[Rfam]
RNA: Xanthomonadaceae sRNA Xoo5
RNA sequence: CCAUGAAGAUGAACGCGCACAUGCACGCCGACAGCGCCGCUCGGAUGGCCUCGAGCAUGACUUCGCGUGCGCGUCGACCGGAAUCCUGCACCUAGCUGGGCCACCGGACGUUAUCGCUUGUCUU
Numbered sequence: 001c002c003a004u005g006a007a008g009a010u011g012a013a014c015g016c017g018c019a020c021a022u023g024c025a026c027g028c029c030g031a032c033a034g035c036g037c038c039g040c041u042c043g044g045a046u047g048g049c050c051u052c053g054a055g056c057a058u059g060a061c062u063u064c065g066c067g068u069g070c071g072c073g074u075c076g077a078c079c080g081g082a083a084u085c086c087u088g089c090a091c092c093u094a095g096c097u098g099g100g101c102c103a104c105c106g107g108a109c110g111u112u113a114u115c116g117c118u119u120g121u122c123u124u
Stems, first nucleotide, its partner, number of pairs: 031121003034117003038110002041107002043079002046076004055070005080105002085100004089095001